[Rfam]
RNA sequence: AGUUGAUAAAGCCACAGCCGUUGCGAAGCGGUGUCGGAAAGCCACGGGUCUCUUUUAAAGAGAUAGCCGAGCUGCCUAC
Numbered sequence: 001a002g003u004u005g006a007u008a009a010a011g012c013c014a015c016a017g018c019c020g021u022u023g024c025g026a027a028g029c030g031g032u033g034u035c036g037g038a039a040a041g042c043c044a045c046g047g048g049u050c051u052c053u054u055u056u057a058a059a060g061a062g063a064u065a066g067c068c069g070a071g072c073u074g075c076c077u078a079c
Stems, first nucleotide, its partner, number of pairs: 012037002017032006040073003045069003048064007
RNA: c-di-GMP-I riboswitch aptamer